This 175-nucleotide sequence from Thiocapsa marina belongs to the Rfam family "Guanidine-I riboswitch aptamer". From the family's description: This family represents a conserved RNA structure found upstream of the ykkC and yxkD genes in Bacillus subtilis and related genes in other bacteria. A reference for the family is Nelson et al. (2017), "Metabolism of Free Guanidine in Bacteria Is Regulated by a Widespread Riboswitch Class", Mol Cell. Pairs were carried over by alignment from the consensus structure. It scores 86 bits against the family's covariance model.

[Rfam]
RNA sequence: CGAAUAGGUGGCUAGGGUUCCGAUCCGCUGACCGCGGGUGUCUGGUCCGAGAGCUGCCGACCUGAUCCGCCGAUCCGUCCGAACACCUUCCCGAGCCGGCUCGAUCCGGUCUUCGAACAGGUUCAGGACGCAUCGACCGGGGCAGGUUACACGGCGGGAUAAAAGCCCGGGAGAU
Numbered sequence: 001c002g003a004a005u006a007g008g009u010g011g012c013u014a015g016g017g018u019u020c021c022g023a024u025c026c027g028c029u030g031a032c033c034g035c036g037g038g039u040g041u042c043u044g045g046u047c048c049g050a051g052a053g054c055u056g057c058c059g060a061c062c063u064g065a066u067c068c069g070c071c072g073a074u075c076c077g078u079c080c081g082a083a084c085a086c087c088u089u090c091c092c093g094a095g096c097c098g099g100c101u102c103g104a105u106c107c108g109g110u111c112u113u114c115g116a117a118c119a120g121g122u123u124c125a126g127g128a129c130g131c132a133u134c135g136a137c138c139g140g141g142g143c144a145g146g147u148u149a150c151a152c153g154g155c156g157g158g159a160u161a162a163a164a165g166c167c168c169g170g171g172a173g174a175u
Stems, first nucleotide, its partner, number of pairs: 007058006015048002020045002022042001023039006059148006150170001152173001156168003